[Rfam]
RNA sequence: UCUCUGAUCUAUAUCGUCUACCAUUACAUUCUUUCGAAACAACCCAGUUUCAGUUCAUACAACCUCAGUCACCAUGUCUCCCUGCACCUGCAACUGCUGCUCCGGCGACUGCAACUCUUGCUCUUGCAAUAGCUGCAAGGUACAGUUCAUA
Numbered sequence: 001u002c003u004c005u006g007a008u009c010u011a012u013a014u015c016g017u018c019u020a021c022c023a024u025u026a027c028a029u030u031c032u033u034u035c036g037a038a039a040c041a042a043c044c045c046a047g048u049u050u051c052a053g054u055u056c057a058u059a060c061a062a063c064c065u066c067a068g069u070c071a072c073c074a075u076g077u078c079u080c081c082c083u084g085c086a087c088c089u090g091c092a093a094c095u096g097c098u099g100c101u102c103c104g105g106c107g108a109c110u111g112c113a114a115c116u117c118u119u120g121c122u123c124u125u126g127c128a129a130u131a132g133c134u135g136c137a138a139g140g141u142a143c144a145g146u147u148c149a150u151a
Stems, first nucleotide, its partner, number of pairs: 083107003090100003111136003120127002
RNA: A. fumigatus sRNA Afu_254